RNA sequence: ACCUGCACCGGCUGACCGGUGGCAAAGCCCGCUUCUUCCAGCCAGUUGCCUUUAAGAUGCAAACUGGGGUGCUGGCUGUAAUAGCGGGUCAUGCCGGUGCUGCGGUCUUCGUGGCGGGUGCGG
Number, nucleotide and partner (000 for none) at each position: 001a000002c000003c000004u000005g000006c000007a000008c000009c000010g000011g000012c000013u000014g000015a000016c000017c000018g000019g000020u000021g076022g000023c074024a073025a000026a000027g070028c069029c068030c067031g000032c000033u000034u000035c000036u000037u000038c000039c000040a000041g000042c000043c066044a065045g064046u063047u059048g058049c000050c056051u000052u000053u000054a000055a000056g050057a000058u048059g047060c000061a000062a000063a046064c045065u044066g043067g030068g029069g028070u027071g000072c000073u024074g023075g000076c021077u000078g000079u000080a000081a000082u000083a000084g000085c000086g000087g000088g000089u000090c000091a000092u000093g000094c000095c000096g000097g000098u000099g000100c000101u116102g115103c114104g000105g000106u000107c000108u000109u000110c000111g000112u000113g000114g103115c102116g101117g000118g000119u000120g000121c000122g000123g000

Record summary
This 123-nucleotide RNA from Photorhabdus laumondii belongs to the Rfam family "isrA Hfq binding RNA". Rfam classes the family as a small RNA. The family has 10 seed sequences and 34 matches in Rfam 15.1. On this family, see Padalon-Brauch et al., Nucleic Acids Res 2008: "Small RNAs encoded within genetic islands of Salmonella typhimurium show host-induced expression and role in virulence". Pairs were carried over by alignment from the consensus structure, which was predicted with WAR.